[Rfam]
Overview:
The family of this 94-nucleotide sequence from Rosa chinensis is "Small nucleolar RNA Z162". A reference for the family is Chen et al. (2003), "The high diversity of snoRNAs in plants: identification and comparative study of 120 snoRNA genes from Oryza sativa", Nucleic Acids Res.

RNA sequence: AGAGGCACAAUGAGGAUCCAAUUUGUAGUGGUAUUCAUGAGAUUUAAAGAUCGGUGAUAUCAAAAUCAUUAGUCCUUUUCAUUCUGAGUGCCUC
Numbered sequence: 001a002g003a004g005g006c007a008c009a010a011u012g013a014g015g016a017u018c019c020a021a022u023u024u025g026u027a028g029u030g031g032u033a034u035u036c037a038u039g040a041g042a043u044u045u046a047a048a049g050a051u052c053g054g055u056g057a058u059a060u061c062a063a064a065a066u067c068a069u070u071a072g073u074c075c076u077u078u079u080c081a082u083u084c085u086g087a088g089u090g091c092c093u094c
Stems, first nucleotide, its partner, number of pairs: 004092005010082005042051003
Pairs were carried over by alignment from the consensus structure, which was predicted with PFOLD. A search with the family's covariance model found it, with a score of 65 bits.